[Rfam]
RNA sequence: GAGGGAAAAGGUGGCAAGAUGUUGGCAUAGCUGUUUGUGUUCAUUGCCCUGCUAUGCCUCCAUAUUGCCAUUUUUUACUCCU
Numbered sequence: 001g002a003g004g005g006a007a008a009a010g011g012u013g014g015c016a017a018g019a020u021g022u023u024g025g026c027a028u029a030g031c032u033g034u035u036u037g038u039g040u041u042c043a044u045u046g047c048c049c050u051g052c053u054a055u056g057c058c059u060c061c062a063u064a065u066u067g068c069c070a071u072u073u074u075u076u077a078c079u080c081c082u
Stems, first nucleotide, its partner, number of pairs: 006076012019063003024058008
mir-31 microRNA precursor family: an 82-nucleotide RNA sequence from Ameiurus melas.
Gene Ontology terms of the family: gene silencing by miRNA and RISC complex.
A reference for the family is Ma et al. (2023), "Structure of pre-miR-31 reveals an active role in Dicer processing", bioRxiv [Preprint].
The source organism's lineage runs through Eukaryota, Opisthokonta, Clupeocephala, Ictaluridae and Ameiurus.